[Rfam]
RNA sequence: AAGGGAGCAAUAAAUUCCCUCUUGUUUUAUCAAGAGGGCGUUAUUGCUUCUUUUUUU
Numbered sequence: 001a002a003g004g005g006a007g008c009a010a011u012a013a014a015u016u017c018c019c020u021c022u023u024g025u026u027u028u029a030u031c032a033a034g035a036g037g038g039c040g041u042u043a044u045u046g047c048u049u050c051u052u053u054u055u056u057u
Base pairs, nucleotide, nucleotide: 001053002052003051004050005049006048007047008046009045010044011043012042013041019036020035021034022033023032024031
Plastid-psbA-3 3UTR RNA: a 57-nucleotide sequence from Cynara cardunculus. It scores 71 bits against the family's covariance model. Plastid psbA-3 is a non-coding RNA (ncRNA) present in plastids. It was identified in inverted repeat sequences in the 3 prime untranslate region (3UTR) of photosystem II quinone-binding protein (psbA).